RNA sequence: CUGUGGUGCAUUGUAGUUGCAUUGCAUGAUCCUGCGACCAAGUGCAAUGUGUCUGCAGUGCAACACAG
Numbered sequence: 001c002u003g004u005g006g007u008g009c010a011u012u013g014u015a016g017u018u019g020c021a022u023u024g025c026a027u028g029a030u031c032c033u034g035c036g037a038c039c040a041a042g043u044g045c046a047a048u049g050u051g052u053c054u055g056c057a058g059u060g061c062a063a064c065a066c067a068g
Stems, first nucleotide, its partner, number of pairs: 001068004006064001007062010019050001021048007
Shown here is a 68-nucleotide sequence from Clupea harengus, a member of the family "mir-33 microRNA precursor family". Rfam 15.1 lists 1,467 matches to the family in 815 species.